[Rfam]
RNA sequence: CUCUUAUUCCGAGAAGGCGCGAGGGACUGGCCCGAUGAUGCCCGGCAACCCGCGGUAAUGAUUCAUAUUUUUUCCUUUAUGGGAAAGAAUAAGAUCAACCGUGCAAGGUGCUAACCAGCAGGAUGCUAUUGUGUCCUGGAAGAUAAGAG
Numbered sequence: 001c002u003c004u005u006a007u008u009c010c011g012a013g014a015a016g017g018c019g020c021g022a023g024g025g026a027c028u029g030g031c032c033c034g035a036u037g038a039u040g041c042c043c044g045g046c047a048a049c050c051c052g053c054g055g056u057a058a059u060g061a062u063u064c065a066u067a068u069u070u071u072u073u074c075c076u077u078u079a080u081g082g083g084a085a086a087g088a089a090u091a092a093g094a095u096c097a098a099c100c101g102u103g104c105a106a107g108g109u110g111c112u113a114a115c116c117a118g119c120a121g122g123a124u125g126c127u128a129u130u131g132u133g134u135c136c137u138g139g140a141a142g143a144u145a146a147g148a149g
Stems, first nucleotide, its partner, number of pairs: 001149008013043001016042003023033003027118004044112004049108002052104003119138006
The family of this 149-nucleotide sequence from Ammoniphilus sp. CFH 90114 is "SAM riboswitch aptamer (S box leader)". The family's consensus secondary structure is taken from published work. The source organism's lineage runs through Bacteria, Bacillati, Bacillota, Paenibacillaceae and Ammoniphilus. Its family is annotated with regulation of gene expression in the Gene Ontology. From the family's description: The SAM riboswitch is found upstream of a number of genes which code for proteins involved in methionine or cysteine biosynthesis in Gram-positive bacteria.